The family of this 94-nucleotide sequence from Rhododendron williamsianum is "Small nucleolar RNA Z103". For this family Rfam cites "The high diversity of snoRNAs in plants: identification and comparative study of 120 snoRNA genes from Oryza sativa" (Chen et al., Nucleic Acids Res, 2003). The match comes from Rfam's covariance-model search (87 bits). The family's consensus secondary structure was predicted with PFOLD. The family has 12 seed sequences and 2,844 matches in Rfam 15.1.

RNA sequence: AUGGAGGUGAUGAUUAUUUCCCCAGAUGAUCGACAAUGAAAUUACUGAGCGCUAUUCUCAAUUUGAGAAAUCCAAGCCAGGAUAUCUGAUCCAU
Dot-bracket structure: (((((....................................................................................)))))